Shown here is a 77-nucleotide RNA sequence from Erinaceus europaeus, a member of the family "Small nucleolar RNA U2-19". The family has 29 seed sequences and 1,147 matches in Rfam 15.1. The family's RNA type in Rfam is C/D-box small nucleolar RNA. The literature on the family includes a 2004 paper in Curr Biol by Tycowski et al., "Guide RNAs with 5' Caps and Novel Box C/D snoRNA-like Domains for Modification of snRNAs in Metazoa". NCBI's taxonomy places the organism under Eukaryota, Vertebrata, Tetrapoda, Theria, Erinaceus.

[Rfam]
RNA sequence: GAUCAAUGAUGAAAAUAGCCAAAUCUGAGCAUCAGAAGAUCUUUAGUCUACCUGGUGCAUGAUCUCUAGUUCUGAGA
Numbered sequence: 001g002a003u004c005a006a007u008g009a010u011g012a013a014a015a016u017a018g019c020c021a022a023a024u025c026u027g028a029g030c031a032u033c034a035g036a037a038g039a040u041c042u043u044u045a046g047u048c049u050a051c052c053u054g055g056u057g058c059a060u061g062a063u064c065u066c067u068a069g070u071u072c073u074g075a076g077a
Stems, first nucleotide, its partner, number of pairs: 029058005037049004